[Rfam]
RNA: Cyanobacterial functional RNA 20
Organism: Prochlorococcus marinus
RNA sequence: UGGCAUUUAGGAAGUGCUUAGCUGUUUAAGCUCAGUUCAUCUGAAUUUAACUUAUUCGUCAUGAGAGUUUGCUAGUAGGGAUACAAGCA
Numbered sequence: 001u002g003g004c005a006u007u008u009a010g011g012a013a014g015u016g017c018u019u020a021g022c023u024g025u026u027u028a029a030g031c032u033c034a035g036u037u038c039a040u041c042u043g044a045a046u047u048u049a050a051c052u053u054a055u056u057c058g059u060c061a062u063g064a065g066a067g068u069u070u071g072c073u074a075g076u077a078g079g080g081a082u083a084c085a086a087g088c089a
Stems, first nucleotide, its partner, number of pairs: 002018007024052001026050005032044004067088005